The record is a 145-nucleotide sequence from Gossypium hirsutum, which matches "MIR7502 microRNA precursor family" in Rfam. The match comes from Rfam's covariance-model search (106 bits). The organism belongs to Gossypium, within Eukaryota.
RNA sequence: UGUUAAAAAUUUUAUUUACUUAUAUUGUUAAAAAUUGGUGUGCUUGAUAGAAUAAUCAAAUAAUAACAUAUGAGGUGCUAUCUGUACGUCAUGCUGACCUACAGAGAUCAAUUUUUAACAAUAAAAAUAAAUUAAAUUUUUAACA
Numbered sequence: 001u002g003u004u005a006a007a008a009a010u011u012u013u014a015u016u017u018a019c020u021u022a023u024a025u026u027g028u029u030a031a032a033a034a035u036u037g038g039u040g041u042g043c044u045u046g047a048u049a050g051a052a053u054a055a056u057c058a059a060a061u062a063a064u065a066a067c068a069u070a071u072g073a074g075g076u077g078c079u080a081u082c083u084g085u086a087c088g089u090c091a092u093g094c095u096g097a098c099c100u101a102c103a104g105a106g107a108u109c110a111a112u113u114u115u116u117a118a119c120a121a122u123a124a125a126a127a128u129a130a131a132u133u134a135a136a137u138u139u140u141u142a143a144c145a
Base pairs, nucleotide, nucleotide: 002144003143004142005141006140007139008138009137010136011135012134014132015131016130018128020126021125023123024122025121026120028118029117030116031115032114033113